RNA sequence: GCCACAUGAUGUUCACAAUUGCAAGUGAGCGCUCCGCGCAGUGCUGACCUUUAUCUAUCACCCUUAACUGAUGGCU
Number, nucleotide and partner (000 for none) at each position: 001g075002c074003c073004a072005c000006a000007u000008g000009a000010u000011g000012u000013u000014c000015a000016c000017a000018a000019u000020u000021g000022c000023a000024a000025g000026u000027g000028a000029g039030c038031g037032c036033u000034c000035c000036g032037c031038g030039c029040a000041g000042u000043g000044c000045u000046g000047a000048c000049c000050u000051u000052u000053a000054u000055c000056u000057a000058u000059c000060a000061c000062c000063c000064u000065u000066a000067a000068c000069u000070g000071a000072u004073g003074g002075c001076u000

A member of the RNA family "Small nucleolar RNA SNORD83" from Microtus ochrogaster, 76 nucleotides long. The family's consensus secondary structure was predicted with PFOLD. Rfam 15.1 lists 1,393 matches to the family in 644 species. Rfam classes the family as a C/D-box small nucleolar RNA. It scores 83 bits against the family's covariance model. Gene Ontology terms of the family: RNA processing and nucleolus. Taxonomically the source falls in Microtus (Eukaryota, Craniata, Amniota, Rodentia).